[Rfam]
RNA sequence: UCUAUAAUCUUUAAUAACAUACAUAUAAGUUUUUAAUUGGAAAAACGUCUCUACGAGAAACCGUAAUUUCUCUCUAUGUAAGGUAAUUCACAUUUU
Numbered sequence: 001u002c003u004a005u006a007a008u009c010u011u012u013a014a015u016a017a018c019a020u021a022c023a024u025a026u027a028a029g030u031u032u033u034u035a036a037u038u039g040g041a042a043a044a045a046c047g048u049c050u051c052u053a054c055g056a057g058a059a060a061c062c063g064u065a066a067u068u069u070c071u072c073u074c075u076a077u078g079u080a081a082g083g084u085a086a087u088u089c090a091c092a093u094u095u096u
Stems, first nucleotide, its partner, number of pairs: 018082001020080006029046006055072006
Dot-bracket structure: .................(.((((((...((((((......))))))........((((((......))))))..)))))).)..............
A member of the RNA family "Purine riboswitch aptamer" from Mycoplasma todarodis, 96 nucleotides long. The base pairs follow the family's consensus structure, which is taken from published work.